[Rfam]
Source information: Rfam assigns this 83-nucleotide sequence from Eudromia elegans to the family "mir-221 microRNA precursor family". NCBI's taxonomy places the organism under Eukaryota, Euteleostomi, Dinosauria, Coelurosauria, Eudromia. Its family is annotated with RISC complex and miRNA-mediated post-transcriptional gene silencing in the Gene Ontology. The base pairs follow the family's consensus structure, which was predicted with RNAalifold. A reference for the family is Yao et al. (2008), "MicroRNA profile of Marek's disease virus-transformed T-cell line MSB-1: predominance of virus-encoded microRNAs", J Virol.
RNA sequence: GUCCGUGGCCGCCCGGUAGUCGGUGUAGGAUCUGUCCCUCUCUGCAACAGCUACAUCUGAUUACUGGGUCACCACGGGCGCCG
Number, nucleotide and partner (000 for none) at each position: 001g000002u000003c000004c000005g000006u000007g000008g000009c000010c000011g000012c000013c067014c066015g065016g064017u063018a062019g000020u060021c059022g058023g056024u055025g054026u053027a052028g051029g000030a000031u000032c050033u049034g048035u047036c000037c000038c000039u000040c000041u000042c000043u000044g000045c000046a000047a035048c034049a033050g032051c028052u027053a026054c025055a024056u023057c000058u022059g021060a020061u000062u018063a017064c016065u015066g014067g013068g000069u000070c000071a000072c000073c000074a000075c000076g000077g000078g000079c000080g000081c000082c000083g000